Record summary: A member of the RNA family "Alphaproteobacterial sRNA BjrC1505" from Allobosea sp. RAC05, 137 nucleotides long.

RNA sequence: CGCGCCGUUAAGGGGCUCUUAACGAUUCCAAAGUAUGAAUCGCAUCAUCCAGUUUGUCUGGAUGCGAGUGGCUCCUGCCCGCUCUGUUUGACGCCUCCCUGUUGACCUUCGAGCCGCCUCCGGGCGGCUCUUUUUUA
Numbered sequence: 001c002g003c004g005c006c007g008u009u010a011a012g013g014g015g016c017u018c019u020u021a022a023c024g025a026u027u028c029c030a031a032a033g034u035a036u037g038a039a040u041c042g043c044a045u046c047a048u049c050c051a052g053u054u055u056g057u058c059u060g061g062a063u064g065c066g067a068g069u070g071g072c073u074c075c076u077g078c079c080c081g082c083u084c085u086g087u088u089u090g091a092c093g094c095c096u097c098c099c100u101g102u103u104g105a106c107c108u109u110c111g112a113g114c115c116g117c118c119u120c121c122g123g124g125c126g127g128c129u130c131u132u133u134u135u136u137a
Stems, first nucleotide, its partner, number of pairs: 002043003005014002020035002048062004066084006090103004111130008

On this family, see Madhugiri et al., RNA Biol 2012: "Small RNAs of the Bradyrhizobium/Rhodopseudomonas lineage and their analysis". The pairing is the family consensus, mapped onto this sequence. Taxonomically the source falls in Allobosea (Bacteria, Pseudomonadati, Pseudomonadota, Hyphomicrobiales).